[Rfam]
Record summary: A member of the RNA family "Actino-pnp RNA" from Parenemella sanctibonifatiensis, 71 nucleotides long.
RNA sequence: UUCGGUCCUCGGUAGUGGCCUCCGGGCCGGCGUACAGUCGCCGAUCCCGUGGGCCUCGAUCGAAGACCGGU
Numbered sequence: 001u002u003c004g005g006u007c008c009u010c011g012g013u014a015g016u017g018g019c020c021u022c023c024g025g026g027c028c029g030g031c032g033u034a035c036a037g038u039c040g041c042c043g044a045u046c047c048c049g050u051g052g053g054c055c056u057c058g059a060u061c062g063a064a065g066a067c068c069g070g071u
Base pairs, nucleotide, nucleotide: 002070003069004068005067006066007065009063010062011061012060013059017055018054019053020052021051023049024048025047026046028043029042030041031040032039
Notes:
The source organism's lineage runs through Bacteria, Bacillati, Actinomycetota, Propionibacteriaceae and Parenemella.